[Rfam]
RNA sequence: GCGCUGGUUUAGCUCAGUGGUUACUUCUUACAACAAUGUAAUCUCUCCCUUCGCGGGAUCGAACCACGGGCGCUGUCCAGUGUUUUU
Numbered sequence: 001g002c003g004c005u006g007g008u009u010u011a012g013c014u015c016a017g018u019g020g021u022u023a024c025u026u027c028u029u030a031c032a033a034c035a036a037u038g039u040a041a042u043c044u045c046u047c048c049c050u051u052c053g054c055g056g057g058a059u060c061g062a063a064c065c066a067c068g069g070g071c072g073c074u075g076u077c078c079a080g081u082g083u084u085u086u087u
Base pairs, nucleotide, nucleotide: 002082003081004080005079006078007077012071013070014069015068017067018066019065020064025063026062027061
About this RNA:
Vault RNA: an 87-nucleotide sequence from Gadus morhua. The base pairs follow the family's consensus structure, which is taken from published work. By type it is a non-coding RNA gene. The source organism's lineage runs through Eukaryota, Metazoa, Euteleostomi, Gadidae and Gadus. The literature on the family includes a 2009 paper in Mol Biol Evol by Stadler et al., "Evolution of Vault RNAs". The family has 73 seed sequences and 2,873 matches in Rfam 15.1. It scores 70 bits against the family's covariance model.